[Rfam]
RNA: mir-9/mir-79 microRNA precursor family
Organism: Nasonia vitripennis
RNA sequence: UUGUAUUUUUCUUCGGUAAUUUAGCUGUAUGUGUCUCGUUGAAAAUAAAUAACAUAAAGUUAGAUUACCAAAGUGAAGUAUUA
Numbered sequence: 001u002u003g004u005a006u007u008u009u010u011c012u013u014c015g016g017u018a019a020u021u022u023a024g025c026u027g028u029a030u031g032u033g034u035c036u037c038g039u040u041g042a043a044a045a046u047a048a049a050u051a052a053c054a055u056a057a058a059g060u061u062a063g064a065u066u067a068c069c070a071a072a073g074u075g076a077a078g079u080a081u082u083a
Stems, first nucleotide, its partner, number of pairs: 001083001003081003007077003011073003015069012028056005
Dot-bracket structure: (.(((.(((.(((.((((((((((((.(((((...................))))).)))))))))))).))).))).))).)